The family of this 310-nucleotide RNA sequence from Acromyrmex echinatior is "Arthropod 7SK RNA".
Rfam 15.1 lists 229 matches to the family in 137 species.
It scores 91 bits against the family's covariance model.
A reference for the family is Gruber et al. (2008), "Arthropod 7SK RNA", Mol Biol Evol.
Lineage of the source: Eukaryota > Bilateria > Allotriocarida > Insecta > Acromyrmex.

[Rfam]
RNA sequence: GGAAGCGUGUGUGGGAUGGCACAACUAAGCAUUGAUCGUUACGUAGAUCAUCACUAUGUAGCAGAUCUGCUCAGUUUGUGUUAUCAUUAAUUAUCGAGCUUUCAGAUCAUCCGAUAAGCUUCUUGAUUUUCCAGACUCCCGAUUGCGCAUAUGCAACUUUGUUUUAAAAUCACAGAUUUGCAUGCCUGCACGGUUGAGUCAUUCCUCAAAGUACCGCGAUUUCCAAAUUUGGGGGGUAAUCGAUUUGGUCAGAGGUAAUUUGUCGCUUCCACAUGCAGGCACUGCUGAUGGCGGUACGCCAUCUUUUUUG
Numbered sequence: 001g002g003a004a005g006c007g008u009g010u011g012u013g014g015g016a017u018g019g020c021a022c023a024a025c026u027a028a029g030c031a032u033u034g035a036u037c038g039u040u041a042c043g044u045a046g047a048u049c050a051u052c053a054c055u056a057u058g059u060a061g062c063a064g065a066u067c068u069g070c071u072c073a074g075u076u077u078g079u080g081u082u083a084u085c086a087u088u089a090a091u092u093a094u095c096g097a098g099c100u101u102u103c104a105g106a107u108c109a110u111c112c113g114a115u116a117a118g119c120u121u122c123u124u125g126a127u128u129u130u131c132c133a134g135a136c137u138c139c140c141g142a143u144u145g146c147g148c149a150u151a152u153g154c155a156a157c158u159u160u161g162u163u164u165u166a167a168a169a170u171c172a173c174a175g176a177u178u179u180g181c182a183u184g185c186c187u188g189c190a191c192g193g194u195u196g197a198g199u200c201a202u203u204c205c206u207c208a209a210a211g212u213a214c215c216g217c218g219a220u221u222u223c224c225a226a227a228u229u230u231g232g233g234g235g236g237u238a239a240u241c242g243a244u245u246u247g248g249u250c251a252g253a254g255g256u257a258a259u260u261u262g263u264c265g266c267u268u269c270c271a272c273a274u275g276c277a278g279g280c281a282c283u284g285c286u287g288a289u290g291g292c293g294g295u296a297c298g299c300c301a302u303c304u305u306u307u308u309u310g
Base pairs, nucleotide, nucleotide: 001270002269003268004267005266006265007264015085016084017083025074026073029070030069031068034067035066036065037064038062039061040060041059044056045055046054278300279299280298281295282294283293284292285291